Record summary: The family of this 138-nucleotide RNA sequence from Microscilla marina is "Bacteroidete tryptophan peptide leader RNA". Gene Ontology terms of the family: regulation of gene expression and S-adenosylmethionine metabolic process. By type it is a cis-regulatory leader.

[Rfam]
RNA sequence: UUGCUUUGAAUAUGAAUGAAAAAAGUUUACAUAUUACAAGAUGUUGGUGGUGGCACAAAAGAGAACUCUCUUCUGUGAAUAGCCCCGUUGUAUACGUGUAAAACUUUAUUACAUAAAGAUAUAAGCAAAAAGGCUUCC
Numbered sequence: 001u002u003g004c005u006u007u008g009a010a011u012a013u014g015a016a017u018g019a020a021a022a023a024a025g026u027u028u029a030c031a032u033a034u035u036a037c038a039a040g041a042u043g044u045u046g047g048u049g050g051u052g053g054c055a056c057a058a059a060a061g062a063g064a065a066c067u068c069u070c071u072u073c074u075g076u077g078a079a080u081a082g083c084c085c086c087g088u089u090g091u092a093u094a095c096g097u098g099u100a101a102a103a104c105u106u107u108a109u110u111a112c113a114u115a116a117a118g119a120u121a122u123a124a125g126c127a128a129a130a131a132g133g134c135u136u137c138c
Stems, first nucleotide, its partner, number of pairs: 036099003040095001041091003046086002049083001054077003058071001060069003